This 172-nucleotide RNA from Lentibacillus salicampi belongs to the Rfam family "glmS glucosamine-6-phosphate activated ribozyme aptamer".
Nucleotides: 172
Base pairs, nucleotide, nucleotide: 020051021050022049023048024047025046026045027044029042060091061090062089063088064087068080069079070078071077092110093109094108095107096106097105115162116161117160119158120157121156130147131146132145133144134143135142136141
Number, partner (000 for none) and nucleotide at each position: 001000a002000g003000a004000g005000u006000a007000a008000g009000c010000a011000a012000a013000g014000c015000g016000c017000c018000u019000g020051a021050a022049c023048u024047a025046u026045u027044u028000u029042u030000c031000g032000a033000a034000c035000g036000g037000u038000g039000a040000a041000u042029g043000a044027a045026a046025a047024u048023a049022g050021u051020u052000g053000a054000c055000g056000a057000g058000g059000u060091g061090g062089g063088g064087g065000u066000u067000a068080u069079c070078g071077a072000g073000u074000u075000a076000u077071u078070c079069g080068g081000c082000g083000g084000g085000u086000a087064c088063c089062u090061c091060c092110c093109g094108g095107c096106u097105g098000c099000a100000c101000a102000u103000c104000u105097c106096a107095g108094u109093c110092g111000u112000g113000a114000u115162a116161c117160u118000u119158u120157u121156u122000c123000u124000u125000a126000a127000a128000a129000a130147c131146a132145g133144u134143g135142a136141g137000g138000c139000g140000a141136c142135u143134u144133g145132c146131u147130g148000u149000a150000c151000a152000a153000a154000g155000g156121a157120a158119a159000u160117a161116g162115u163000a164000a165000u166000g167000a168000u169000g170000c171000g172000a
The source organism's lineage runs through Bacteria, Bacilli, Caryophanales, Bacillaceae and Lentibacillus.
The family's RNA type in Rfam is riboswitch.
About the family: This entry contains a glucosamine-6-phosphate activated ribozyme that is found in the mRNA for GlmS. GlmS is an enzyme that uses fructose-6-phosphate and glutamine to generate glucosamine-6-phosphate. The ribozyme catalyses self cleavage of the glmS mRNA that is thought to regulate GlmS activity.
The match comes from Rfam's covariance-model search (108 bits).